[Rfam]
RNA: mir-8250 microRNA precursor family
RNA sequence: CUCUCUAUUUGCCUGGAUUCGAUUGUAAUUGAGAUCAAUCUCCAGUCAUAAUGGGGGGCA
Numbered sequence: 001c002u003c004u005c006u007a008u009u010u011g012c013c014u015g016g017a018u019u020c021g022a023u024u025g026u027a028a029u030u031g032a033g034a035u036c037a038a039u040c041u042c043c044a045g046u047c048a049u050a051a052u053g054g055g056g057g058g059c060a
Stems, first nucleotide, its partner, number of pairs: 001058009010048002013045005021040005